RNA sequence: AAGAGGAGGCCCCUGAAUGAUGCGCAGCAUCAUUCUAUUCGAUGGGGCCGACGAUCUGCCGCCGAAGCUUUAGCUGAGGGGGCAAUACCUAAG
Numbered sequence: 001a002a003g004a005g006g007a008g009g010c011c012c013c014u015g016a017a018u019g020a021u022g023c024g025c026a027g028c029a030u031c032a033u034u035c036u037a038u039u040c041g042a043u044g045g046g047g048c049c050g051a052c053g054a055u056c057u058g059c060c061g062c063c064g065a066a067g068c069u070u071u072a073g074c075u076g077a078g079g080g081g082g083c084a085a086u087a088c089c090u091a092a093g
Stems, first nucleotide, its partner, number of pairs: 008049006017033006058083003062079002066075002

This 93-nucleotide sequence belongs to the Rfam family "GA-cis RNA".
It is one of the family's seed sequences.